[Rfam]
Nucleotides: 102
Stems, first nucleotide, its partner, number of pairs: 002101001004099004038063001040061004
Number, partner (000 for none) and nucleotide at each position: 001000u002101g003000a004099u005098u006097g007096c008000u009000g010000u011000g012000a013000u014000g015000a016000c017000u018000c019000a020000u021000a022000u023000u024000a025000g026000g027000a028000c029000g030000g031000u032000a033000u034000c035000u036000g037000a038063a039000g040061g041060g042059g043058g044000g045000u046000g047000a048000a049000u050000u051000u052000a053000g054000u055000g056000c057000a058043c059042c060041c061040c062000a063038u064000c065000u066000g067000a068000u069000u070000a071000u072000a073000c074000c075000a076000a077000a078000a079000c080000u081000g082000a083000a084000u085000a086000u087000g088000g089000u090000u091000u092000c093000u094000g095000a096007g097006c098005a099004a100000a101002u102000u
The record is a 102-nucleotide RNA from Dichanthelium oligosanthes, which matches "Small nucleolar RNA Z118/Z121/Z120" in Rfam.
It is annotated as a C/D-box small nucleolar RNA.
Lineage of the source: Eukaryota > commelinids > Panicoideae > Panicodae > Dichanthelium.
On this family, see Chen et al., Nucleic Acids Res 2003: "The high diversity of snoRNAs in plants: identification and comparative study of 120 snoRNA genes from Oryza sativa".
Its family is annotated with RNA processing and nucleolus in the Gene Ontology.